[Rfam]
RNA sequence: ACCCCCGCUAUUGUUGCUCUAUUGGGUUGCGAUCGAGCUUAGCCUCGUUCAUUUUUUUAUACAAUAACCCGUUAAAAAUAGAAGACAGGCCGCUCACGCUGGCGAUCAAGACUGAAUAGAAACACGAUAAAACGCCCUAAAUAGCGGCAAAAAAGGCCAUCUGGCGCAGUUUUAGGGCAA
Numbered sequence: 001a002c003c004c005c006c007g008c009u010a011u012u013g014u015u016g017c018u019c020u021a022u023u024g025g026g027u028u029g030c031g032a033u034c035g036a037g038c039u040u041a042g043c044c045u046c047g048u049u050c051a052u053u054u055u056u057u058u059a060u061a062c063a064a065u066a067a068c069c070c071g072u073u074a075a076a077a078a079u080a081g082a083a084g085a086c087a088g089g090c091c092g093c094u095c096a097c098g099c100u101g102g103c104g105a106u107c108a109a110g111a112c113u114g115a116a117u118a119g120a121a122a123c124a125c126g127a128u129a130a131a132a133c134g135c136c137c138u139a140a141a142u143a144g145c146g147g148c149a150a151a152a153a154a155g156g157c158c159a160u161c162u163g164g165c166g167c168a169g170u171u172u173u174a175g176g177g178c179a180a
Base pairs, nucleotide, nucleotide: 025100026099027098035093037091042090043089044088045087047086048085049084053080054078055077056076057075058074059073162180164178165177167175
The family of this 180-nucleotide sequence from Pseudomonas syringae group genomosp. 3 is "Pseudomonas sRNA P1".
By type it is a non-coding RNA gene.
This small RNA (sRNA) was computationally identified in the genome of the opportunistic pathogen Pseudomonas aeruginosa and its expression verified by northern blot analysis.
NCBI's taxonomy places the organism under Bacteria, Pseudomonadales, Pseudomonas, Pseudomonas syringae group genomosp. 3, Pseudomonas syringae pv. tomato.